[Rfam]
RNA sequence: GUUGCAAGUCUGAGGGCAUAGCAGAAGCACUCAUGUCAUGGCCCUGCCAGAUUCCAAUGAACCUGUGAAUUCUGCU
Numbered sequence: 001g002u003u004g005c006a007a008g009u010c011u012g013a014g015g016g017c018a019u020a021g022c023a024g025a026a027g028c029a030c031u032c033a034u035g036u037c038a039u040g041g042c043c044c045u046g047c048c049a050g051a052u053u054c055c056a057a058u059g060a061a062c063c064u065g066u067g068a069a070u071u072c073u074g075c076u
Stems, first nucleotide, its partner, number of pairs: 015043002017040001020076007027039001048065003052061003
Source information: This 76-nucleotide sequence from Alligator mississippiensis belongs to the Rfam family "Mammalian CPEB3 ribozyme". Rfam describes the family as follows. The mammalian CPEB3 ribozyme is a self cleaving RNA located in the second intron of the CPEB3 gene which belongs to a family of genes regulating messenger RNA polyadenylation. Taxonomically the source falls in Alligator (Eukaryota, Teleostomi, Dipnotetrapodomorpha, Crocodylia). Pairs were carried over by alignment from the consensus structure, which is taken from published work. A search with the family's covariance model found it, with a score of 43 bits.